RNA: sRNA-Xcc1
RNA sequence: GGCCGGGUGGAGAGGUGUAAUACAAUACCCGCAAGGGGAAUAUGCCCGGAGCGUCUGUUUAGGCUCUAGUUGACACCCGGCUACCAGCCA
Numbered sequence: 001g002g003c004c005g006g007g008u009g010g011a012g013a014g015g016u017g018u019a020a021u022a023c024a025a026u027a028c029c030c031g032c033a034a035g036g037g038g039a040a041u042a043u044g045c046c047c048g049g050a051g052c053g054u055c056u057g058u059u060u061a062g063g064c065u066c067u068a069g070u071u072g073a074c075a076c077c078c079g080g081c082u083a084c085c086a087g088c089c090a
Stems, first nucleotide, its partner, number of pairs: 001082009014046003018042002028037003048067005